[Rfam]
RNA sequence: CCGACUUCCAUUGGGGAGUAGCCGCCCUGAUCUCACCGCGCCGCGCAAUGCGGCAACCGGAAGACAGGGGCGUACGUCAACAGACUUGACUGCAAUGCAGUUAUGGCGUGCGCAGCUUCGGACCUUGCGUCCGGCGCCUGGCGAGACCGAUGACCAUACGUUUCCGGCCGGGCCGGGGAAAUGUAUGUGUCAUUGGCAUCUCGCAGAU
Numbered sequence: 001c002c003g004a005c006u007u008c009c010a011u012u013g014g015g016g017a018g019u020a021g022c023c024g025c026c027c028u029g030a031u032c033u034c035a036c037c038g039c040g041c042c043g044c045g046c047a048a049u050g051c052g053g054c055a056a057c058c059g060g061a062a063g064a065c066a067g068g069g070g071c072g073u074a075c076g077u078c079a080a081c082a083g084a085c086u087u088g089a090c091u092g093c094a095a096u097g098c099a100g101u102u103a104u105g106g107c108g109u110g111c112g113c114a115g116c117u118u119c120g121g122a123c124c125u126u127g128c129g130u131c132c133g134g135c136g137c138c139u140g141g142c143g144a145g146a147c148c149g150a151u152g153a154c155c156a157u158a159c160g161u162u163u164c165c166g167g168c169c170g171g172g173c174c175g176g177g178g179a180a181a182u183g184u185a186u187g188u189g190u191c192a193u194u195g196g197c198a199u200c201u202c203g204c205a206g207a208u
Stems, first nucleotide, its partner, number of pairs: 026068003070113010087103005114208001116206002119203002

The family of this 208-nucleotide RNA from Cupriavidus agavae is "Manganese Mn2+ riboswitch aptamer (yybP-ykoY)". Rfam describes the family as follows. This RNA was originally discovered in E. coli during a large scale screen and was named SraF. The family was later found to exist upstream of related families of protein genes in many bacteria, including the the yybP and ykoK genes in B. subtilis. The specific functions of these proteins are unknown, but this structured RNA element may be involved in their genetic regulation as a riboswitch. The match comes from Rfam's covariance-model search (58 bits). The source organism's lineage runs through Bacteria, Pseudomonadati, Pseudomonadota, Burkholderiales and Cupriavidus.